[Rfam]
RNA: Pseudomon-groES RNA
Organism: Pseudomonas mangrovi
Nucleotides: 114
Stems, first nucleotide, its partner, number of pairs: 010019003021036006046067008070082004097114006
Number, partner (000 for none) and nucleotide at each position: 001000g002000u003000a004000g005000c006000g007000g008000u009000c010019a011018c012017c013000g014000c015000a016000a017012g018011g019010u020000c021036c022035c023034u024033g025032u026031c027000a028000u029000g030000c031026g032025a033024c034023a035022g036021g037000c038000u039000g040000u041000c042000u043000u044000u045000c046067g047066c048065g049064g050063c051062u052061c053060g054000c055000g056000c057000a058000a059000g060053c061052g062051g063050g064049c065048u066047g067046c068000a069000c070082c071081c072080g073079g074000c075000a076000c077000u078000g079073c080072c081071g082070g083000c084000u085000u086000u087000c088000g089000u090000c091000a092000a093000c094000c095000a096000g097114a098113c099112c100111g101110g102109u103000a104000c105000a106000g107000a108000u109102g110101c111100c112099g113098g114097u